A member of the RNA family "Selenocysteine transfer RNA" from Desulfofundulus thermobenzoicus, 93 nucleotides long. Gene Ontology term of the family: triplet codon-amino acid adaptor activity. Pairs were carried over by alignment from the consensus structure, which is taken from published work. The literature on the family includes a 2000 paper in FEBS Lett by Mizutani and Goto, "Eukaryotic selenocysteine tRNA has the 9/4 secondary structure".
[Rfam]
RNA sequence: GGGGAGAGCGGGGCUGGUGCCCCCCGCGGGCCGCAAACCCGUUGGCCUGCCUGCGAUCCAGGCGGGGGUCCGGUUCGAUUCCGACCUCUCCCC
Numbered sequence: 001g002g003g004g005a006g007a008g009c010g011g012g013g014c015u016g017g018u019g020c021c022c023c024c025c026g027c028g029g030g031c032c033g034c035a036a037a038c039c040c041g042u043u044g045g046c047c048u049g050c051c052u053g054c055g056a057u058c059c060a061g062g063c064g065g066g067g068g069u070c071c072g073g074u075u076c077g078a079u080u081c082c083g084a085c086c087u088c089u090c091c092c093c
Stems, first nucleotide, its partner, number of pairs: 001093007008085001010023005025044001026042005046066005069084001071083003